Shown here is a 91-nucleotide RNA from Mesorhizobium sanjuanii, a member of the family "Alphaproteobacterial ar15". Rfam links the family to the GO term protein binding. The family is grouped with related families in Rfam's "suhB sRNA clan". Rfam classes the family as a small RNA. NCBI's taxonomy places the organism under Bacteria, Pseudomonadati, Pseudomonadota, Phyllobacteriaceae, Mesorhizobium.
[Rfam]
RNA sequence: GCGUCGGAUGUCUCCUCCCAUUGCAUCCGACGCGUUCCCCUCUGGAGGUUUUAAACCUUCAUGCUUGGCCGGACUUAACAGUCCGGCCUUU
Numbered sequence: 001g002c003g004u005c006g007g008a009u010g011u012c013u014c015c016u017c018c019c020a021u022u023g024c025a026u027c028c029g030a031c032g033c034g035u036u037c038c039c040c041u042c043u044g045g046a047g048g049u050u051u052u053a054a055a056c057c058u059u060c061a062u063g064c065u066u067g068g069c070c071g072g073a074c075u076u077a078a079c080a081g082u083c084c085g086g087c088c089u090u091u
Base pairs, nucleotide, nucleotide: 001033002032003031004030005029007027008026009025043061044060045059046058047057048056049055069086070085071084072083073082074081